[Rfam]
RNA sequence: AAAUUCUUAGGCACGAUCUUGUGGCAGAAACUGGGUAGUUGGUGAACUCGCUACACGGUUUCUGUCACAAGAUCGUGUCUGUGAAUAU
Numbered sequence: 001a002a003a004u005u006c007u008u009a010g011g012c013a014c015g016a017u018c019u020u021g022u023g024g025c026a027g028a029a030a031c032u033g034g035g036u037a038g039u040u041g042g043u044g045a046a047c048u049c050g051c052u053a054c055a056c057g058g059u060u061u062c063u064g065u066c067a068c069a070a071g072a073u074c075g076u077g078u079c080u081g082u083g084a085a086u087a088u
Stems, first nucleotide, its partner, number of pairs: 001088001003086004008081005014075008023066011035054002
Annotation
This 88-nucleotide RNA sequence from Oryza barthii belongs to the Rfam family "MIR1861 microRNA precursor family". Its family is annotated with RISC complex and miRNA-mediated post-transcriptional gene silencing in the Gene Ontology. A search with the family's covariance model found it, with a score of 88 bits.